The family of this 81-nucleotide RNA sequence from Peptoniphilus lacrimalis is "tRNA". Rfam classes the family as a transfer RNA.
RNA sequence: GCGGGAAUGGCGGAAUUGGCAGACGCGCUAGACUUAGGAUCUAGUUCCAUUGGAGUGGGGGUUCAAGUCCUCUUUCCCGCA
Numbered sequence: 001g002c003g004g005g006a007a008u009g010g011c012g013g014a015a016u017u018g019g020c021a022g023a024c025g026c027g028c029u030a031g032a033c034u035u036a037g038g039a040u041c042u043a044g045u046u047c048c049a050u051u052g053g054a055g056u057g058g059g060g061g062u063u064c065a066a067g068u069c070c071u072c073u074u075u076c077c078c079g080c081a
Base pairs, nucleotide, nucleotide: 001080002079003078004077005076006075007074010026011025012024028044029043030042031041032040057073058072059071060070061069